[Rfam]
RNA sequence: UUUCAACAUGUAUCUUAUGUACCGUAUAAUUAACUAAUAUUCGGUAGUUAAGUUUCUACCUUAGUUCCGAUAAACUAAGACUACGUACAUACUCCUUCUUAAA
Numbered sequence: 001u002u003u004c005a006a007c008a009u010g011u012a013u014c015u016u017a018u019g020u021a022c023c024g025u026a027u028a029a030u031u032a033a034c035u036a037a038u039a040u041u042c043g044g045u046a047g048u049u050a051a052g053u054u055u056c057u058a059c060c061u062u063a064g065u066u067c068c069g070a071u072a073a074a075c076u077a078a079g080a081c082u083a084c085g086u087a088c089a090u091a092c093u094c095c096u097u098c099u100u101a102a103a
Base pairs, nucleotide, nucleotide: 018089019088020087021086023085024084025083026082030051031050032049033048034047035046036045060079061078062077063076064075065074066073
Rfam assigns this 103-nucleotide sequence from Acholeplasma laidlawii to the family "Purine riboswitch aptamer". The base pairs follow the family's consensus structure, which is taken from published work. The match comes from Rfam's covariance-model search (48 bits).